[Rfam]
A member of the RNA family "Bacterial RNase P class A" from Cylindrospermum sp. NIES-4074, 366 nucleotides long. NCBI's taxonomy places the organism under Bacteria, Bacillati, Cyanobacteriota, Nostocales, Cylindrospermum. Rfam classes the family as a ribozyme.

RNA sequence: AGAGUAGGCGUAGGCGGUUGCAGAUCAGUUUUUAGACUGGUUUGAGGAAAGUCCGGGCUCCCGAAAGACCAGACUUGCUGGAUAACGUCCAGUGCGUGCGAGCGUGAGGAUAGUGCCACAGAAAGAUACCGCCAAAUUGAAUGAAUUCAAUUUGGUAAGGGUGCAAAGGUGCGGUAAGAGCGCACCAGCAGCGUCGAGAGGCGUUGGCUCGGUAAACCCCGGUUGGGAGCAAGGCCAGAGGAACUACGGUUGGUCUUUUACCAGUUCCGUGAAAGGAGAGCCGCUAGAGGCGUUUGGUAACAAGCGUCCCAGAUAGAUAACUGCCCUCGCAAGAGAACAGAACCCGGCUUACUACCGACUCUUUCC
Dot-bracket structure: (((((.((.(..(((((((.(((((((((......)))))))))....[[[.[[[[[((((.....[[...(((.(((((((.....)))))(((((....)))).)((...(((((...........(((((((((((((....)))))))))))..)).......((((((.......)))))).((((((((....))))))).)..)))..))))))))).))))...(((....((((((..(((.(...]]).)))))))))...........)))......((((((((....))))))))..........))))))).................]]]]]]]]..).)).)))))....